[Rfam]
7SK RNA: a 328-nucleotide RNA sequence from Balaenoptera physalus. Rfam's curators write: 7SK was discovered as an abundant small nuclear RNA in the mid-70s but a possible function has only recently been suggested.

RNA sequence: GGAUGUGAGGGCGAUCUGGCUGCAACACCUGUCACCCCAUGGAUCAUCAGGGUUGAUUCGGCUGAUCUGGUUGUCUAGGUGGUGUCUUCUCCCUCCCUCACUGCUCUAUGUGUGUCCCUUCUGAAGCUGCAUGCUCCGUCAAAGAGGCUGACAUUCCCUGAUAGAGGAGGACCGUUCUUCGGUCAAAGGUAGACGAAUAGCUGUGCUCCCUGGCUAGAACCUCCAACAAGCCCUUAAAGUCCUUUUGCAGGAGAACGUAGGUAGUCAAGCUUCCAAGACUCCAGGCACAUCCAAAUGACAUGCUGCAUGUGGCAGUCUGUCUUUCUUU
Numbered sequence: 001g002g003a004u005g006u007g008a009g010g011g012c013g014a015u016c017u018g019g020c021u022g023c024a025a026c027a028c029c030u031g032u033c034a035c036c037c038c039a040u041g042g043a044u045c046a047u048c049a050g051g052g053u054u055g056a057u058u059c060g061g062c063u064g065a066u067c068u069g070g071u072u073g074u075c076u077a078g079g080u081g082g083u084g085u086c087u088u089c090u091c092c093c094u095c096c097c098u099c100a101c102u103g104c105u106c107u108a109u110g111u112g113u114g115u116c117c118c119u120u121c122u123g124a125a126g127c128u129g130c131a132u133g134c135u136c137c138g139u140c141a142a143a144g145a146g147g148c149u150g151a152c153a154u155u156c157c158c159u160g161a162u163a164g165a166g167g168a169g170g171a172c173c174g175u176u177c178u179u180c181g182g183u184c185a186a187a188g189g190u191a192g193a194c195g196a197a198u199a200g201c202u203g204u205g206c207u208c209c210c211u212g213g214c215u216a217g218a219a220c221c222u223c224c225a226a227c228a229a230g231c232c233c234u235u236a237a238a239g240u241c242c243u244u245u246u247g248c249a250g251g252a253g254a255a256c257g258u259a260g261g262u263a264g265u266c267a268a269g270c271u272u273c274c275a276a277g278a279c280u281c282c283a284g285g286c287a288c289a290u291c292c293a294a295a296u297g298a299c300a301u302g303c304u305g306c307a308u309g310u311g312g313c314a315g316u317c318u319g320u321c322u323u324u325c326u327u328u
Stems, first nucleotide, its partner, number of pairs: 001107003005101007013092001018089002025085005031080003036073001037070003042067004047061002115170002117167004121138001123136002126134002139161003146157002200270003206264002209261003213258002221253004227247004293328003297323002300320002302316005